[Rfam]
The record is a 106-nucleotide RNA sequence from Photobacterium gaetbulicola, which matches "c-di-GMP-I riboswitch aptamer" in Rfam.
RNA sequence: GUCAGCUAAAGGCUAAUUAUCCGAAAGGAUAGGGCGCAAAACUUCCGGCCUACGGAGUCGCCAUCACUUCAAGGUGAUUGGGUUCUAGGGUAGCGGGGUUACCUGA
Numbered sequence: 001g002u003c004a005g006c007u008a009a010a011g012g013c014u015a016a017u018u019a020u021c022c023g024a025a026a027g028g029a030u031a032g033g034g035c036g037c038a039a040a041a042c043u044u045c046c047g048g049c050c051u052a053c054g055g056a057g058u059c060g061c062c063a064u065c066a067c068u069u070c071a072a073g074g075u076g077a078u079u080g081g082g083u084u085c086u087a088g089g090g091u092a093g094c095g096g097g098g099u100u101a102c103c104u105g106a
Stems, first nucleotide, its partner, number of pairs: 012037002017032006040100004045096003048091003055085004
About this RNA
The base pairs follow the family's consensus structure, which is taken from published work.